Rfam assigns this 150-nucleotide RNA sequence from Martelella endophytica to the family "FMN riboswitch aptamer (RFN element)". The base pairs follow the family's consensus structure, which is taken from published work. The organism belongs to Martelella, within Bacteria.
[Rfam]
RNA sequence: GCAGGUUCUCGGGGCGGGGCGAAAUUCCCCACCGGCGGUAAGCGCGGUUUGUGCGCAAGCCCGCGAGCGCCCGGUUCGCAAGGACCGGGGUCAGCAGAUCCGGUGCAACUCCGGAGCCGACGGUUAGAGUCCGGAUGAAAGAGAACAGUC
Numbered sequence: 001g002c003a004g005g006u007u008c009u010c011g012g013g014g015c016g017g018g019g020c021g022a023a024a025u026u027c028c029c030c031a032c033c034g035g036c037g038g039u040a041a042g043c044g045c046g047g048u049u050u051g052u053g054c055g056c057a058a059g060c061c062c063g064c065g066a067g068c069g070c071c072c073g074g075u076u077c078g079c080a081a082g083g084a085c086c087g088g089g090g091u092c093a094g095c096a097g098a099u100c101c102g103g104u105g106c107a108a109c110u111c112c113g114g115a116g117c118c119g120a121c122g123g124u125u126a127g128a129g130u131c132c133g134g135a136u137g138a139a140a141g142a143g144a145a146c147a148g149u150c
Base pairs, nucleotide, nucleotide: 005146006145007144008143009142010141017029018028019027031130032129033119034118035064036063037062038061059117060116067095068094099115100114101113102112103111121133122132123131